[Rfam]
RNA sequence: AAAGACGAUCCAGGCGUAUUUUUUUUCACAUACUCAGGUCUUAAACCUUGAAUAAUUGAGGGAUGACCUCAUUUAAUCUCCAGUAGCAAAUUUGAUCUGUUAUGGGAGGAAUCAUGCGUCUGGAUCGUCUUAC
Numbered sequence: 001a002a003a004g005a006c007g008a009u010c011c012a013g014g015c016g017u018a019u020u021u022u023u024u025u026u027c028a029c030a031u032a033c034u035c036a037g038g039u040c041u042u043a044a045a046c047c048u049u050g051a052a053u054a055a056u057u058g059a060g061g062g063a064u065g066a067c068c069u070c071a072u073u074u075a076a077u078c079u080c081c082a083g084u085a086g087c088a089a090a091u092u093u094g095a096u097c098u099g100u101u102a103u104g105g106g107a108g109g110a111a112u113c114a115u116g117c118g119u120c121u122g123g124a125u126c127g128u129c130u131u132a133c
Stems, first nucleotide, its partner, number of pairs: 002131017022111001023037002025032001046061006062073004077109005083103003
Record summary: Yersinia sRNA 155(RyfD): a 133-nucleotide RNA sequence from Klebsiella sp. RIT-PI-d. The match comes from Rfam's covariance-model search (101 bits). From the family's description: The sRNA was identified by and is confirmed to have a stable secondary structure by using genome-wide structure probing at different temperatures. Rfam classes the family as a small RNA. For this family Rfam cites "Temperature-responsive in vitro RNA structurome of Yersinia pseudotuberculosis" (Righetti et al., Proc Natl Acad Sci U S A, 2016). Pairs were carried over by alignment from the consensus structure.